[Rfam]
RNA sequence: UUUAUCAGAUUCAUCUCAAUCCACAUGUGUUUGAGUGGAUUAGUGUGAAAUUUAGUUGAAAUUUUAUUCCAAUCCACCCCAACACAUGUGGAUUGAUGUGAAUCCGACU
Numbered sequence: 001u002u003u004a005u006c007a008g009a010u011u012c013a014u015c016u017c018a019a020u021c022c023a024c025a026u027g028u029g030u031u032u033g034a035g036u037g038g039a040u041u042a043g044u045g046u047g048a049a050a051u052u053u054a055g056u057u058g059a060a061a062u063u064u065u066a067u068u069c070c071a072a073u074c075c076a077c078c079c080c081a082a083c084a085c086a087u088g089u090g091g092a093u094u095g096a097u098g099u100g101a102a103u104c105c106g107a108c109u
Stems, first nucleotide, its partner, number of pairs: 005107002008104007016096016035077007043069001045067003
RNA: MIR5565 microRNA precursor family
Organism: Sorghum bicolor